A member of the RNA family "U5 spliceosomal RNA" from Ascobolus immersus, 119 nucleotides long.
RNA sequence: ACGGGCUGCUUCAAGAUAGCCAAACGGAUUCCUCUCUUGCCUUUUACCAGAGAGGACCAUGUCUUGAGCGCAAGGGCCCGCUACUUAGUCUUUGGAAUCAAUUGUCUCACGUUCAAUUC
Numbered sequence: 001a002c003g004g005g006c007u008g009c010u011u012c013a014a015g016a017u018a019g020c021c022a023a024a025c026g027g028a029u030u031c032c033u034c035u036c037u038u039g040c041c042u043u044u045u046a047c048c049a050g051a052g053a054g055g056a057c058c059a060u061g062u063c064u065u066g067a068g069c070g071c072a073a074g075g076g077c078c079c080g081c082u083a084c085u086u087a088g089u090c091u092u093u094g095g096a097a098u099c100a101a102u103u104g105u106c107u108c109a110c111g112u113u114c115a116a117u118u119c
Stems, first nucleotide, its partner, number of pairs: 003079004009070001011067008030056008100118005
The base pairs follow the family's consensus structure, which is taken from published work.